Notes: This 266-nucleotide sequence from Melghirimyces algeriensis belongs to the Rfam family "Bacterial large signal recognition particle RNA". By type it is a non-coding RNA gene.

[Rfam]
RNA sequence: CCGCGCUAGAUGGGGAGCUGGCGGUGCCCUGUAGCCUGCAAUCCGCCUUAGCGGGAUCGAAUACCCGUCAGCGGUCUUCAUUGUGUGGGGUCCGGUUCAUGUGAGAAGUGUUGACGAACAGGUCCUGCGCAACGGAAAUCUCCGAACUGUGUCAGGUCCUGACGGAAGCAGCACUAAGGGGAAUCUUCCGUGUGCCGCAGGAGUGCCUGAUCUGAGCGGAUCACAUGAAGCCCGCCUAGGCGAAGAAGAUCAAUGGCGGGGCGCGG
Numbered sequence: 001c002c003g004c005g006c007u008a009g010a011u012g013g014g015g016a017g018c019u020g021g022c023g024g025u026g027c028c029c030u031g032u033a034g035c036c037u038g039c040a041a042u043c044c045g046c047c048u049u050a051g052c053g054g055g056a057u058c059g060a061a062u063a064c065c066c067g068u069c070a071g072c073g074g075u076c077u078u079c080a081u082u083g084u085g086u087g088g089g090g091u092c093c094g095g096u097u098c099a100u101g102u103g104a105g106a107a108g109u110g111u112u113g114a115c116g117a118a119c120a121g122g123u124c125c126u127g128c129g130c131a132a133c134g135g136a137a138a139u140c141u142c143c144g145a146a147c148u149g150u151g152u153c154a155g156g157u158c159c160u161g162a163c164g165g166a167a168g169c170a171g172c173a174c175u176a177a178g179g180g181g182a183a184u185c186u187u188c189c190g191u192g193u194g195c196c197g198c199a200g201g202a203g204u205g206c207c208u209g210a211u212c213u214g215a216g217c218g219g220a221u222c223a224c225a226u227g228a229a230g231c232c233c234g235c236c237u238a239g240g241c242g243a244a245g246a247a248g249a250u251c252a253a254u255g256g257c258g259g260g261g262c263g264c265g266g
Base pairs, nucleotide, nucleotide: 001266002265003264004263005262006261007260009058010057011056012030013029014028015027017025018024019023035055036054037053038052039051065259066258067257068256069255070254073251074250075249076248077247081243082242083241084240086238087237088236089235093234094233097228098227099226100225101224102223105222106221108217109216116212117211119209120208121207122206123205124201125200126199127198128197129196130192131191133190134189135188136187137186139182140181141180142179143178149174150173151172152171157166158165159164
Dot-bracket structure: (((((((.(((((((.(((...))).))))....(((((...........))))))))......((((((..(((((...((((.((((...((..((((((..((.((......((.(((((((((((((.(((((.(((((.....((((....(((....)))....))))...)))))...)))))))...))))))...))))).))...))...))))))))....)))))).))))...)))))..)))))))))))))
NCBI's taxonomy places the organism under Bacteria, Bacillati, Bacilli, Thermoactinomycetaceae, Melghirimyces. The family's consensus secondary structure is taken from published work. A search with the family's covariance model found it, with a score of 195 bits.